[Rfam]
RNA sequence: CCGAGGCUCCAUCUAUAAAUGGAUAAUCUUUUGGUCUUAAAGUAUACGAGCUUUUGAGAGUAAAGGAGCAACAUCAACUCUGUUGAUAUUGCUCCUUU
Numbered sequence: 001c002c003g004a005g006g007c008u009c010c011a012u013c014u015a016u017a018a019a020u021g022g023a024u025a026a027u028c029u030u031u032u033g034g035u036c037u038u039a040a041a042g043u044a045u046a047c048g049a050g051c052u053u054u055u056g057a058g059a060g061u062a063a064a065g066g067a068g069c070a071a072c073a074u075c076a077a078c079u080c081u082g083u084u085g086a087u088a089u090u091g092c093u094c095c096u097u098u
Stems, first nucleotide, its partner, number of pairs: 008023005062098010073087002076084003
This 98-nucleotide sequence from Lupinus albus belongs to the Rfam family "Plastid-psbA-1 3UTR RNA". By type it is a cis-regulatory element. The match comes from Rfam's covariance-model search (82 bits). From the family's description: Plastid psbA-1 is a non-coding RNA (ncRNA) present in plastids. On this family, see Richter et al., Plant Commun 2023: "Retrograde signaling in plants: A critical review focusing on the GUN pathway and beyond". The source organism's lineage runs through Eukaryota, Gunneridae, Fabaceae, core genistoids and Lupinus. The base pairs follow the family's consensus structure, which was predicted with LocARNA.